[Rfam]
RNA sequence: AGCACCUUUAACUAAGUCCAGAGAGGCUUAGAAGGUAUCACGUCUGCUGCGGCAGAUCAAUUACGACUGACGGUCGCCUUCUAACCAAACUGGAUAGAAGGCGACUUUUU
Numbered sequence: 001a002g003c004a005c006c007u008u009u010a011a012c013u014a015a016g017u018c019c020a021g022a023g024a025g026g027c028u029u030a031g032a033a034g035g036u037a038u039c040a041c042g043u044c045u046g047c048u049g050c051g052g053c054a055g056a057u058c059a060a061u062u063a064c065g066a067c068u069g070a071c072g073g074u075c076g077c078c079u080u081c082u083a084a085c086c087a088a089a090c091u092g093g094a095u096a097g098a099a100g101g102c103g104a105c106u107u108u109u110u
Stems, first nucleotide, its partner, number of pairs: 004036006013030006041072004046067001048065002051062002073105011085093002